[Rfam]
Shown here is a 38-nucleotide RNA from Herpetosiphon aurantiacus, a member of the family "CRISPR RNA direct repeat element". NCBI's taxonomy places the organism under Bacteria, Bacillati, Chloroflexota, Herpetosiphon, Herpetosiphon aurantiacus. Its family is annotated with defense response in the Gene Ontology.
RNA sequence: CUUCAAAUAACCAAAAUCCUCGGAAUCGGAUUCAACAG
Numbered sequence: 001c002u003u004c005a006a007a008u009a010a011c012c013a014a015a016a017u018c019c020u021c022g023g024a025a026u027c028g029g030a031u032u033c034a035a036c037a038g
Base pairs, nucleotide, nucleotide: 015032016031017030018029019028